Rfam assigns this 141-nucleotide RNA to the family "Group II catalytic intron D1-D4-7". On this family, see Lehmann and Schmidt, Crit Rev Biochem Mol Biol 2003: "Group II introns: structure and catalytic versatility of large natural ribozymes". Rfam describes the family as follows. Group II introns are found in rRNA, tRNA and mRNA of organelles in fungi, plants and protists, and also in mRNA in bacteria.
RNA sequence: CCUGAUAUGUUCCUAUCAGACUCUAGGAUGACAUGCUACCUUUGCGCAGAUGAAGGGGUGUGAAGCUCAUCCGACAAUGUACCGAAAUGGGUCAAAGCUGCAAGGUAGAGACCCUUCCGGAAAUCCCGUCCGGUUAAGGGC
Numbered sequence: 001c002c003u004g005a006u007a008u009g010u011u012c013c014u015a016u017c018a019g020a021c022u023c024u025a026g027g028a029u030g031a032c033a034u035g036c037u038a039c040c041u042u043u044g045c046g047c048a049g050a051u052g053a054a055g056g057g058g059u060g061u062g063a064a065g066c067u068c069a070u071c072c073g074a075c076a077a078u079g080u081a082c083c084g085a086a087a088u089g090g091g092u093c094a095a096a097g098c099u100g101c102a103a104g105g106u107a108g109a110g111a112c113c114c115u116u117c118c119g120g121a122a123a124u125c126c127c128g129u130c131c132g133g134u135u136a137a138g139g140g141c
Stems, first nucleotide, its partner, number of pairs: 002019006027071005032062006039055001041053002090113004098105002117133005